[Rfam]
RNA sequence: GUACUACCAAACCCUAUCUCCACCUCCACGUGGUGAUCGCUGGGAGUUCUUUGUUAAUCACAAACUGCAGGCGGGGAAGG
Numbered sequence: 001g002u003a004c005u006a007c008c009a010a011a012c013c014c015u016a017u018c019u020c021c022a023c024c025u026c027c028a029c030g031u032g033g034u035g036a037u038c039g040c041u042g043g044g045a046g047u048u049c050u051u052u053g054u055u056a057a058u059c060a061c062a063a064a065c066u067g068c069a070g071g072c073g074g075g076g077a078a079g080g
Stems, first nucleotide, its partner, number of pairs: 013080003017076004022034003046068002050064005
Annotation
Rfam assigns this 80-nucleotide sequence from Hermetia illucens to the family "drz-agam-1 ribozyme". Gene Ontology term of the family: catalytic activity. A reference for the family is Webb et al. (2009), "Widespread occurrence of self-cleaving ribozymes", Science. The organism belongs to Hermetia, within Eukaryota.